[Rfam]
mir-544 microRNA precursor family: an 83-nucleotide RNA from Odobenus rosmarus. Rfam links the family to the GO terms miRNA-mediated post-transcriptional gene silencing and RISC complex.
RNA sequence: AUCACCUAGGGAUCCUGUUAAUAUGCAGGUUUGAGACAGGGCCUGAAAUCCUGCAUUUCUAACGAGUUCUCAUGUGAUCCUAU
Numbered sequence: 001a002u003c004a005c006c007u008a009g010g011g012a013u014c015c016u017g018u019u020a021a022u023a024u025g026c027a028g029g030u031u032u033g034a035g036a037c038a039g040g041g042c043c044u045g046a047a048a049u050c051c052u053g054c055a056u057u058u059c060u061a062a063c064g065a066g067u068u069c070u071c072a073u074g075u076g077a078u079c080c081u082a083u
Base pairs, nucleotide, nucleotide: 003076004075005074009070010069011068014066016064017063018062019061020060021058023056025054026053027052028051029050030048031047032046

About this RNA:
It scores 69 bits against the family's covariance model.